The family of this 166-nucleotide RNA from Nostoc minutum is "Nitrogen stress-induced RNA 8". It scores 98 bits against the family's covariance model. Rfam classes the family as a small RNA. Gene Ontology term of the family: heterocyst differentiation. Lineage of the source: Bacteria > Cyanobacteriota > Nostocales > Nostocaceae > Nostoc minutum.
RNA sequence: ACGAGAAUUGCAAGGAUUAGCUAUGAUUGCAACACUUAGUAUGGUAUGAAUAGCCAUUAUUUGUGUUAAUAUCAACUGUCCUUGCAACUUCUUUAAUUUUUUCUUUUUUUAUAAAGUCUAAGGUGUAUUGCCACUUUCAAGCUAUUUAGGCGGGGUAAAACCCGUC
Number, nucleotide and partner (000 for none) at each position: 001a107002c000003g105004a104005g103006a102007a000008u087009u086010g085011c000012a083013a082014g081015g080016a079017u000018u078019a077020g000021c000022u000023a000024u074025g073026a072027u071028u000029g000030c000031a067032a066033c065034a064035c063036u000037u000038a062039g000040u000041a057042u056043g055044g000045u000046a000047u000048g000049a000050a000051u000052a000053g000054c000055c043056a042057u041058u000059a000060u000061u000062u038063g035064u034065g033066u032067u031068a000069a000070u000071a027072u026073c025074a024075a000076c000077u019078g018079u016080c015081c014082u013083u012084g000085c010086a009087a008088c000089u000090u000091c000092u000093u000094u000095a000096a000097u000098u000099u000100u000101u000102u006103c005104u004105u003106u000107u001108u000109u000110u000111a000112u000113a146114a145115a143116g142117u141118c000119u000120a137121a136122g135123g134124u133125g132126u000127a000128u000129u000130g000131c000132c125133a124134c123135u122136u121137u120138c000139a000140a000141g117142c116143u115144a000145u114146u113147u000148a000149g166150g165151c164152g163153g162154g161155g000156u000157a000158a000159a000160a000161c154162c153163c152164g151165u150166c149